[Rfam]
RNA sequence: CUUAGGAGCCAAUGAUGUUUUUAUUCAAAAUGUCUGAACCUGGCUGAAGUAUCCCAGAGUUGCAACCUCUGUGUAGUGCCGAGGCUUUUCUGCCA
Dot-bracket structure: ...(((((((........................................................................)))))))......

Rfam assigns this 95-nucleotide RNA from Carlito syrichta to the family "Small nucleolar RNA SNORD91 family". Lineage of the source: Eukaryota > Eutheria > Boreoeutheria > Haplorrhini > Carlito. Gene Ontology terms of the family: nucleolus and RNA processing. The base pairs follow the family's consensus structure. The family's RNA type in Rfam is C/D-box small nucleolar RNA. For this family Rfam cites "RNomics: an experimental approach that identifies 201 candidates for novel, small, non-messenger RNAs in mouse" (Huttenhofer et al., EMBO J, 2001). A search with the family's covariance model found it, with a score of 99 bits.